[Rfam]
RNA sequence: UACACAAAGCAUAUGAUGAAAAAGCAUGCAAGCUGAGUCCAUGUGAAGUGUAUUCAAUCCAACACUGAGCUUUGUGUC
Numbered sequence: 001u002a003c004a005c006a007a008a009g010c011a012u013a014u015g016a017u018g019a020a021a022a023a024g025c026a027u028g029c030a031a032g033c034u035g036a037g038u039c040c041a042u043g044u045g046a047a048g049u050g051u052a053u054u055c056a057a058u059c060c061a062a063c064a065c066u067g068a069g070c071u072u073u074g075u076g077u078c
Stems, first nucleotide, its partner, number of pairs: 002077009
A member of the RNA family "Small nucleolar RNA SNORD69" from Eudromia elegans, 78 nucleotides long. For this family Rfam cites "RNomics: an experimental approach that identifies 201 candidates for novel, small, non-messenger RNAs in mouse" (Huttenhofer et al., EMBO J, 2001). Pairs were carried over by alignment from the consensus structure. It scores 51 bits against the family's covariance model. The source organism's lineage runs through Eukaryota, Tetrapoda, Sauropsida, Palaeognathae and Eudromia. Rfam classes the family as a C/D-box small nucleolar RNA.